[Rfam]
RNA sequence: UAGGGUACCUUUUGAUCCUCCUUAGUUUAAACAAAUGAACUAGUUUUCCAAAAAAAUUGUGUCUUUUUAAAAUUUUAGUUCAUUUGUUUGAACUAAGGAGGGUCAAAGGGUACCCUG
Number, nucleotide and partner (000 for none) at each position: 001u000002a116003g115004g114005g113006u112007a111008c110009c109010u108011u107012u106013u105014g104015a103016u102017c101018c100019u099020c098021c097022u096023u095024a094025g093026u092027u091028u090029a089030a088031a087032c086033a085034a084035a083036u082037g081038a080039a079040c078041u077042a076043g075044u000045u000046u000047u000048c000049c000050a000051a000052a000053a000054a000055a000056a000057u000058u000059g000060u000061g000062u000063c000064u000065u000066u000067u000068u000069a000070a000071a000072a000073u000074u000075u043076u042077a041078g040079u039080u038081c037082a036083u035084u034085u033086g032087u031088u030089u029090g028091a027092a026093c025094u024095a023096a022097g021098g020099a019100g018101g017102g016103u015104c014105a013106a012107a011108g010109g009110g008111u007112a006113c005114c004115c003116u002117g000